[Rfam]
RNA sequence: AGCCUGUGAUGACAGACUUUAUUUAUUUUUCUGACACCUCGUAUGAGAGCUUCCAGCUCCUGAUUCUAACUCUGAUCUGAGGCUG
Numbered sequence: 001a002g003c004c005u006g007u008g009a010u011g012a013c014a015g016a017c018u019u020u021a022u023u024u025a026u027u028u029u030u031c032u033g034a035c036a037c038c039u040c041g042u043a044u045g046a047g048a049g050c051u052u053c054c055a056g057c058u059c060c061u062g063a064u065u066c067u068a069a070c071u072c073u074g075a076u077c078u079g080a081g082g083c084u085g
Base pairs, nucleotide, nucleotide: 001084002083003082004081049057050056051055
RNA: Small nucleolar RNA SNORD60